Rfam assigns this 68-nucleotide RNA from Saimiri boliviensis to the family "Small nucleolar RNA SNORD63". Rfam's curators write: snoRNA U63 is found in both humans and mice. A reference for the family is Galardi et al. (2002), "Purified box C/D snoRNPs are able to reproduce site-specific 2'-O-methylation of target RNA in vitro", Mol Cell Biol. By type it is a C/D-box small nucleolar RNA. Rfam 15.1 lists 795 matches to the family in 549 species.
RNA sequence: GUGCAAUGAUGUAUUUUAUUCAACACAUCAUUCUGAAAGAAUGUGUGGAAAACUAAUGACUGAGCACA
Numbered sequence: 001g002u003g004c005a006a007u008g009a010u011g012u013a014u015u016u017u018a019u020u021c022a023a024c025a026c027a028u029c030a031u032u033c034u035g036a037a038a039g040a041a042u043g044u045g046u047g048g049a050a051a052a053c054u055a056a057u058g059a060c061u062g063a064g065c066a067c068a
Stems, first nucleotide, its partner, number of pairs: 001067004